[Rfam]
Rfam assigns this 58-nucleotide sequence from an Alphaproteobacteria bacterium to the family "terC RNA". By type it is a cis-regulatory element. Pairs were carried over by alignment from the consensus structure, which is taken from published work.
RNA sequence: ACUUCAGUCCGGGCCCCUCUGGCGCAGAUGGCGAUCUGCGCGAUGUCGGACUUAGCGG
Number, nucleotide and partner (000 for none) at each position: 001a000002c000003u000004u000005c000006a052007g051008u050009c049010c048011g047012g046013g000014c000015c000016c000017c000018u000019c000020u000021g000022g041023c040024g039025c038026a037027g036028a035029u034030g000031g000032c000033g000034a029035u028036c027037u026038g025039c024040g023041c022042g000043a000044u000045g000046u012047c011048g010049g009050a008051c007052u006053u000054a000055g000056c000057g000058g000